[Rfam]
RNA: Fluoride riboswitch aptamer (crcB RNA motif)
Organism: Burkholderia sp. H160
RNA sequence: UUCGCGGCUGGAGAUCGCAUUCUCCAUUAACCGCCCCUGGGGCUGAUGAUGCCUGCUACGCC
Numbered sequence: 001u002u003c004g005c006g007g008c009u010g011g012a013g014a015u016c017g018c019a020u021u022c023u024c025c026a027u028u029a030a031c032c033g034c035c036c037c038u039g040g041g042g043c044u045g046a047u048g049a050u051g052c053c054u055g056c057u058a059c060g061c062c
Stems, first nucleotide, its partner, number of pairs: 010025004017052005033043004